Notes
This 97-nucleotide sequence from Cuscuta australis belongs to the Rfam family "Small nucleolar RNA Z43". Rfam links the family to the GO terms RNA processing and nucleolus.
RNA sequence: GGGCAUGAUGACUCAUUAAUAUUGGUUUCAGUCCGUCAUAAUGGUUUUCACAACCUUGCCAACCAACUUUUUAUAUCACCACUCAUAAUGUGGGCUC
Numbered sequence: 001g002g003g004c005a006u007g008a009u010g011a012c013u014c015a016u017u018a019a020u021a022u023u024g025g026u027u028u029c030a031g032u033c034c035g036u037c038a039u040a041a042u043g044g045u046u047u048u049c050a051c052a053a054c055c056u057u058g059c060c061a062a063c064c065a066a067c068u069u070u071u072u073a074u075a076u077c078a079c080c081a082c083u084c085a086u087a088a089u090g091u092g093g094g095c096u097c
Base pairs, nucleotide, nucleotide: 001097002096003095004094048052
It scores 45 bits against the family's covariance model. The source organism's lineage runs through Eukaryota, eudicotyledons, Convolvulaceae, Cuscuteae and Cuscuta sect. Cleistogrammica. Pairs were carried over by alignment from the consensus structure, which was predicted with PFOLD.